[Rfam]
RNA sequence: UAACAGUGAUGAGCUUCAACUUCAUGGUCCGUGUUUUUGAAACUCUGUGAUAUUUAUUGAAGUUCUGAGUUA
Numbered sequence: 001u002a003a004c005a006g007u008g009a010u011g012a013g014c015u016u017c018a019a020c021u022u023c024a025u026g027g028u029c030c031g032u033g034u035u036u037u038u039g040a041a042a043c044u045c046u047g048u049g050a051u052a053u054u055u056a057u058u059g060a061a062g063u064u065c066u067g068a069g070u071u072a
Base pairs, nucleotide, nucleotide: 001072002071003070004069
Small nucleolar RNA SNORD18: a 72-nucleotide RNA from Mola mola.
A search with the family's covariance model found it, with a score of 69 bits.
A reference for the family is Prislei et al. (1993), "Two different snoRNAs are encoded in introns of amphibian and human L1 ribosomal protein genes", Nucleic Acids Res.
NCBI's taxonomy places the organism under Eukaryota, Euteleostomi, Clupeocephala, Eurypterygia, Mola.
It is annotated as a C/D-box small nucleolar RNA.